Rfam assigns this 582-nucleotide part of an RNA from Yarrowia lipolytica to the family "Eukaryotic large subunit ribosomal RNA". The sequence is in the family's curated seed alignment. NCBI's taxonomy places the organism under Eukaryota, Opisthokonta, saccharomyceta, Saccharomycotina, Yarrowia.
RNA sequence: UUCACCUCCUUCAUCCGAGAUUACCCGCUGAACUUAAGCAUAUCAAUAAGCGGAGGAAAAGAAACCAACAGGGAUUGCCUCAGUAACGGCGAGUGAAGCGGCAAAAGCUCAAAUUUGAAACCCUCGGGAUUGUAAUUUGAAGAUUUGGCAUUGGAGAAAGCUAACCCAAGUUGCUUGGAAUAGUACGUCAUAGAGGGUGACAACCCCGUCUGGCUAACCGUUCUCCAUGUAUUGCCUUAUCAAAGAGUCGAGUUGUUUGGGAAUGCAGCUCAAAGUGGGUGGUAAACUCCAUCUAAAGCUAAAUACUGGUGAGAGACCGAUAGCGAACAAGUACUGUGAAGGAAAGGUGAAAAGAACUUUGAAAAGAGAGUGAAAUAGUAUGUGAAAUUGUUGAUAGGGAAGGAAAUGAGUGGAGAGUGGCCGAGGUUUCAGCCGCCCCUCGUGGGCGGUGUACUGCCGACGCCGAGUCAUCGAUAGCGAGACGAGGGUUACAAAUGGGAGCGCCUUUCGGGCGUUCUCCCCUAACCCUCCACACUGCCACCGACGACAUAAUCCACCCAUUUCACCCGUCUUGAAACACGG
Numbered sequence: 001u002u003c004a005c006c007u008c009c010u011u012c013a014u015c016c017g018a019g020a021u022u023a024c025c026c027g028c029u030g031a032a033c034u035u036a037a038g039c040a041u042a043u044c045a046a047u048a049a050g051c052g053g054a055g056g057a058a059a060a061g062a063a064a065c066c067a068a069c070a071g072g073g074a075u076u077g078c079c080u081c082a083g084u085a086a087c088g089g090c091g092a093g094u095g096a097a098g099c100g101g102c103a104a105a106a107g108c109u110c111a112a113a114u115u116u117g118a119a120a121c122c123c124u125c126g127g128g129a130u131u132g133u134a135a136u137u138u139g140a141a142g143a144u145u146u147g148g149c150a151u152u153g154g155a156g157a158a159a160g161c162u163a164a165c166c167c168a169a170g171u172u173g174c175u176u177g178g179a180a181u182a183g184u185a186c187g188u189c190a191u192a193g194a195g196g197g198u199g200a201c202a203a204c205c206c207c208g209u210c211u212g213g214c215u216a217a218c219c220g221u222u223c224u225c226c227a228u229g230u231a232u233u234g235c236c237u238u239a240u241c242a243a244a245g246a247g248u249c250g251a252g253u254u255g256u257u258u259g260g261g262a263a264u265g266c267a268g269c270u271c272a273a274a275g276u277g278g279g280u281g282g283u284a285a286a287c288u289c290c291a292u293c294u295a296a297a298g299c300u301a302a303a304u305a306c307u308g309g310u311g312a313g314a315g316a317c318c319g320a321u322a323g324c325g326a327a328c329a330a331g332u333a334c335u336g337u338g339a340a341g342g343a344a345a346g347g348u349g350a351a352a353a354g355a356a357c358u359u360u361g362a363a364a365a366g367a368g369a370g371u372g373a374a375a376u377a378g379u380a381u382g383u384g385a386a387a388u389u390g391u392u393g394a395u396a397g398g399g400a401a402g403g404a405a406a407u408g409a410g411u412g413g414a415g416a417g418u419g420g421c422c423g424a425g426g427u428u429u430c431a432g433c434c435g436c437c438c439c440u441c442g443u444g445g446g447c448g449g450u451g452u453a454c455u456g457c458c459g460a461c462g463c464c465g466a467g468u469c470a471u472c473g474a475u476a477g478c479g480a481g482a483c484g485a486g487g488g489u490u491a492c493a494a495a496u497g498g499g500a501g502c503g504c505c506u507u508u509c510g511g512g513c514g515u516u517c518u519c520c521c522c523u524a525a526c527c528c529u530c531c532a533c534a535c536u537g538c539c540a541c542c543g544a545c546g547a548c549a550u551a552a553u554c555c556a557c558c559c560a561u562u563u564c565a566c567c568c569g570u571c572u573u574g575a576a577a578c579a580c581g582g
Stems, first nucleotide, its partner, number of pairs: 024055001025053005035042002065072002076103004086094002106300004112137004118131002121128002142241002147236004152227007160218001162216002165213002170186001172185004189193001196206002250271007277294005334341002357368004403564006410557005419463001422462002467548003471544003567582004